Rfam assigns this 80-nucleotide RNA sequence from Oryzias latipes to the family "mir-199 microRNA precursor family". Pairs were carried over by alignment from the consensus structure, which was predicted with RNAalifold. It is one of the family's seed sequences. The family has 83 seed sequences and 1,828 matches in Rfam 15.1.
RNA sequence: GCUCCGUCAUCCCAGUGUUCAGACUACCUGUUCAGAAUCUUCCUGGUGUACAGUAGUCUGCACAUUGGUUAGACUGUGCA
Numbered sequence: 001g002c003u004c005c006g007u008c009a010u011c012c013c014a015g016u017g018u019u020c021a022g023a024c025u026a027c028c029u030g031u032u033c034a035g036a037a038u039c040u041u042c043c044u045g046g047u048g049u050a051c052a053g054u055a056g057u058c059u060g061c062a063c064a065u066u067g068g069u070u071a072g073a074c075u076g077u078g079c080a
Base pairs, nucleotide, nucleotide: 012068013067014066015065016064017063018062020060021059022058023057024056025055026054028053029052030051031050033048034047